This 116-nucleotide sequence from Aeribacillus pallidus belongs to the Rfam family "TPP riboswitch aptamer (THI element)". Rfam's curators write: Vitamin B(1) in its active form thiamin pyrophosphate (TPP) is an essential coenzyme that is synthesised by coupling of pyrimidine and thiazole moieties in bacteria. A search with the family's covariance model found it, with a score of 82 bits.
RNA sequence: ACCAUCUACUAGGGGUGUCCAAUUAGCUGGACUGAGAGAAGAACGCGCCUGAAGUUCUUCAACCCUUUGAACCUGAUCUGGAUGAUGCCAGCGUAGGGAAGUAGGUAGCGGGAGUA
Numbered sequence: 001a002c003c004a005u006c007u008a009c010u011a012g013g014g015g016u017g018u019c020c021a022a023u024u025a026g027c028u029g030g031a032c033u034g035a036g037a038g039a040a041g042a043a044c045g046c047g048c049c050u051g052a053a054g055u056u057c058u059u060c061a062a063c064c065c066u067u068u069g070a071a072c073c074u075g076a077u078c079u080g081g082a083u084g085a086u087g088c089c090a091g092c093g094u095a096g097g098g099a100a101g102u103a104g105g106u107a108g109c110g111g112g113a114g115u116a
Base pairs, nucleotide, nucleotide: 006104007103008102009101010100011066012065013064014063017032018031019030020029021028039059040058041057042056043055072097073096074095075094078091079090080089081088